[Rfam]
RNA: FMN riboswitch aptamer (RFN element)
RNA sequence: AUUCGUCUUCAGGGGCAGGGUGCAAUUCCCGACCGGUGGUAAAGUCCACGAGCUGACUAUUUUUUAGGAGGCUGAACUGGUGAAAUUCCAGUACCGACAGUACAGUCUGGAUAAAGAAGAUAGAG
Numbered sequence: 001a002u003u004c005g006u007c008u009u010c011a012g013g014g015g016c017a018g019g020g021u022g023c024a025a026u027u028c029c030c031g032a033c034c035g036g037u038g039g040u041a042a043a044g045u046c047c048a049c050g051a052g053c054u055g056a057c058u059a060u061u062u063u064u065u066a067g068g069a070g071g072c073u074g075a076a077c078u079g080g081u082g083a084a085a086u087u088c089c090a091g092u093a094c095c096g097a098c099a100g101u102a103c104a105g106u107c108u109g110g111a112u113a114a115a116g117a118a119g120a121u122a123g124a125g
Stems, first nucleotide, its partner, number of pairs: 003123001005121006018030003032106002034096002036049004044094002052072003076092005098109003